[Rfam]
RNA: DUF805 RNA
RNA sequence: ACAAAGUGGAGCAGCGACCACUGUACAAACGGGCGAAACCGAAAAGCCAUACGAGUAGGAAAAAA
Dot-bracket structure: .....((((........))))..........(((....[[.....))).........]]......